[Rfam]
RNA: Small nucleolar RNA SNORD59
RNA sequence: CCUUCCAGGAUGAUGGAUCAUUGUGACUUUCGUUCUUCUGAGCUCGCUGAAGCCACCUCAAUGAUCUGAGAAGG
Numbered sequence: 001c002c003u004u005c006c007a008g009g010a011u012g013a014u015g016g017a018u019c020a021u022u023g024u025g026a027c028u029u030u031c032g033u034u035c036u037u038c039u040g041a042g043c044u045c046g047c048u049g050a051a052g053c054c055a056c057c058u059c060a061a062u063g064a065u066c067u068g069a070g071a072a073g074g
Stems, first nucleotide, its partner, number of pairs: 001074003005070001